[Rfam]
RNA sequence: GAGAUGUGAUGAGUUUUUCUUUGGUCCGUGUUUCUGAUUAACCGUGACCGAUAACCUUUACCAAACUCUGAUCUC
Numbered sequence: 001g002a003g004a005u006g007u008g009a010u011g012a013g014u015u016u017u018u019c020u021u022u023g024g025u026c027c028g029u030g031u032u033u034c035u036g037a038u039u040a041a042c043c044g045u046g047a048c049c050g051a052u053a054a055c056c057u058u059u060a061c062c063a064a065a066c067u068c069u070g071a072u073c074u075c
Base pairs, nucleotide, nucleotide: 001075002074003073004072

Rfam assigns this 75-nucleotide sequence from Nyssa sinensis to the family "Small nucleolar RNA SNORD18". The family has 16 seed sequences and 2,622 matches in Rfam 15.1. For this family Rfam cites "Two different snoRNAs are encoded in introns of amphibian and human L1 ribosomal protein genes" (Prislei et al., Nucleic Acids Res, 1993). Rfam links the family to the GO terms nucleolus and RNA processing. By type it is a C/D-box small nucleolar RNA. A search with the family's covariance model found it, with a score of 42 bits. Pairs were carried over by alignment from the consensus structure, which was predicted with PFOLD.